[Rfam]
RNA sequence: GACGACCGGCCGGACGCCUGUGUGCCCGGCCCGCAAGUGGAGGCUCCGAACUCCCACCCGGUCGCCCUUCGGGCGACGGGUCACCGGUCAGACGGACGCCGUCCCCCGAGACGGAUUCCGUUCGAUGCCCCGCGUUCAGCGCGGCGGUGUUCCGGUAGUGCAGGAGCCCCGCCCGUGACCCUCCGGGGCAUUUUCG
Numbered sequence: 001g002a003c004g005a006c007c008g009g010c011c012g013g014a015c016g017c018c019u020g021u022g023u024g025c026c027c028g029g030c031c032c033g034c035a036a037g038u039g040g041a042g043g044c045u046c047c048g049a050a051c052u053c054c055c056a057c058c059c060g061g062u063c064g065c066c067c068u069u070c071g072g073g074c075g076a077c078g079g080g081u082c083a084c085c086g087g088u089c090a091g092a093c094g095g096a097c098g099c100c101g102u103c104c105c106c107c108g109a110g111a112c113g114g115a116u117u118c119c120g121u122u123c124g125a126u127g128c129c130c131c132g133c134g135u136u137c138a139g140c141g142c143g144g145c146g147g148u149g150u151u152c153c154g155g156u157a158g159u160g161c162a163g164g165a166g167c168c169c170c171g172c173c174c175g176u177g178a179c180c181c182u183c184c185g186g187g188g189c190a191u192u193u194u195c196g
Stems, first nucleotide, its partner, number of pairs: 004089006012027002028082005034060001037057004041052002061077007091122005099114005127189006134180001140177003143173005149167005
RNA: Streptomyces RNA 1601